[Rfam]
RNA sequence: GGUGUCUCUCCAGUGGUUUUACCCUAUGGUAGGUUGGGUCAAGCUGUUCUACCACAGGGUAGAACCACGGACGGGAUGC
Number, nucleotide and partner (000 for none) at each position: 001g000002g000003u000004g000005u000006c000007u000008c000009u000010c070011c069012a000013g068014u067015g066016g065017u064018u063019u062020u061021a060022c059023c058024c057025u056026a000027u054028g053029g052030u051031a050032g049033g048034u000035u000036g047037g000038g045039u000040c000041a000042a000043g000044c000045u038046g000047u036048u033049c032050u031051a030052c029053c028054a027055c000056a025057g024058g023059g022060u021061a020062g019063a018064a017065c016066c015067a014068c013069g011070g010071a000072c000073g000074g000075g000076a000077u000078g000079c000
Rfam assigns this 79-nucleotide RNA sequence from Electrophorus electricus to the family "mir-140 microRNA precursor family". The family has 32 seed sequences and 648 matches in Rfam 15.1. Gene Ontology terms of the family: RISC complex and miRNA-mediated post-transcriptional gene silencing. A search with the family's covariance model found it, with a score of 91 bits. For this family Rfam cites "Identification of microRNAs from different tissues of chicken embryo and adult chicken" (Xu et al., FEBS Lett, 2006). NCBI's taxonomy places the organism under Eukaryota, Bilateria, Teleostomi, Gymnotoidei, Electrophorus.